[Rfam]
RNA sequence: ACUCGAAAGCCGUGGCGUUCCGACGCCGCGGCCUUUCGGAGGCGUUUCGGGGAGGAAACGUCCGCUCCGUAGAGAGCGAAAGAAGCCCGCCGCGAUGUAUCCCCCGCGGCGGGCUUUUUC
Numbered sequence: 001a002c003u004c005g006a007a008a009g010c011c012g013u014g015g016c017g018u019u020c021c022g023a024c025g026c027c028g029c030g031g032c033c034u035u036u037c038g039g040a041g042g043c044g045u046u047u048c049g050g051g052g053a054g055g056a057a058a059c060g061u062c063c064g065c066u067c068c069g070u071a072g073a074g075a076g077c078g079a080a081a082g083a084a085g086c087c088c089g090c091c092g093c094g095a096u097g098u099a100u101c102c103c104c105c106g107c108g109g110c111g112g113g114c115u116u117u118u119u120c
Stems, first nucleotide, its partner, number of pairs: 003039007012029004017024001041062008080119015